[Rfam]
RNA sequence: AGCUAGUAUGGUAGAAAUAUAAUUUCUUUCUACCAUACUAGCUAUUAUUGUAAUGUAACAAUACCAUAAUAUACUGUAUAAAAAUACAGGAUUAAUA
Numbered sequence: 001a002g003c004u005a006g007u008a009u010g011g012u013a014g015a016a017a018u019a020u021a022a023u024u025u026c027u028u029u030c031u032a033c034c035a036u037a038c039u040a041g042c043u044a045u046u047a048u049u050g051u052a053a054u055g056u057a058a059c060a061a062u063a064c065c066a067u068a069a070u071a072u073a074c075u076g077u078a079u080a081a082a083a084a085u086a087c088a089g090g091a092u093u094a095a096u097a
Stems, first nucleotide, its partner, number of pairs: 002042016019025001

Source information:
Plastid-psbM 3UTR RNA: a 97-nucleotide RNA from Trapa maximowiczii. The family's RNA type in Rfam is cis-regulatory element. The organism belongs to Trapa, within Eukaryota. For this family Rfam cites "Retrograde signaling in plants: A critical review focusing on the GUN pathway and beyond" (Richter et al., Plant Commun, 2023).